[Rfam]
RNA sequence: AUACCAAAAGUUAAUUUUUGGGGGCAAAGGUUUUUUUAAUAACCUUUACCAACUUGGGCUAUUGGGAGAAUAAAGAGAAGACCACACUCCACAGUGGCCUAUACCACUUAGUAUAGUUCACUACUAUUUUGUGGCCUACAUU
Number, nucleotide and partner (000 for none) at each position: 001a000002u000003a000004c065005c064006a063007a000008a062009a000010g000011u000012u061013a060014a000015u058016u057017u056018u000019u000020g000021g054022g053023g000024g000025c000026a000027a000028a047029g044030g043031u042032u041033u000034u000035u000036u000037u000038a000039a000040u000041a032042a031043c030044c029045u000046u000047u028048a000049c000050c000051a000052a000053c022054u021055u000056g017057g016058g015059c000060u013061a012062u008063u006064g005065g004066g000067a000068g000069a000070a000071u000072a000073a000074a000075g000076a000077g000078a000079a137080g136081a000082c134083c133084a132085c131086a130087c000088u000089c000090c000091a000092c000093a122094g121095u120096g119097g118098c000099c116100u115101a114102u113103a112104c111105c000106a000107c000108u000109u000110a000111g104112u103113a102114u101115a100116g099117u000118u097119c096120a095121c094122u093123a000124c000125u000126a000127u000128u000129u000130u086131g085132u084133g083134g082135c000136c080137u079138a000139c000140a000141u000142u000
RNA: Small nucleolar RNA SNORA4